A member of the RNA family "Xanthine riboswitch aptamer (NMT1 RNA)" from Vibrio fluvialis, 53 nucleotides long. The sequence is in the family's curated seed alignment.
RNA sequence: UUCGUGAGUAGAAGCGGUUAGGUGCCGGGCGGCAUCGGGACAUUGCUCAUAGU
Numbered sequence: 001u002u003c004g005u006g007a008g009u010a011g012a013a014g015c016g017g018u019u020a021g022g023u024g025c026c027g028g029g030c031g032g033c034a035u036c037g038g039g040a041c042a043u044u045g046c047u048c049a050u051a052g053u
Base pairs, nucleotide, nucleotide: 005049006048007047008046009045010044015038018040019039021036022035023034024033025032026031